[Rfam]
RNA sequence: AGCAAAAUAAUGAAUGAGGUGCUUAUAUUUGAAUAUGAUGUAGAACACCAUAACAUUUUGGUCUUCAAAGUUCUAUGAUUGCU
Numbered sequence: 001a002g003c004a005a006a007a008u009a010a011u012g013a014a015u016g017a018g019g020u021g022c023u024u025a026u027a028u029u030u031g032a033a034u035a036u037g038a039u040g041u042a043g044a045a046c047a048c049c050a051u052a053a054c055a056u057u058u059u060g061g062u063c064u065u066c067a068a069a070g071u072u073c074u075a076u077g078a079u080u081g082c083u
Stems, first nucleotide, its partner, number of pairs: 001083005

The record is an 83-nucleotide RNA sequence from Carpinus fangiana, which matches "Small nucleolar RNA R160" in Rfam.
The base pairs follow the family's consensus structure.
Its family is annotated with RNA processing and nucleolus in the Gene Ontology.
It is annotated as a C/D-box small nucleolar RNA.
About the family: snoR160 is a C/D box small nucleolar RNA, which acts as a methylation guide for 25S ribosomal RNA in plants. snoR160 has been alternatively named snoZ270 in rice.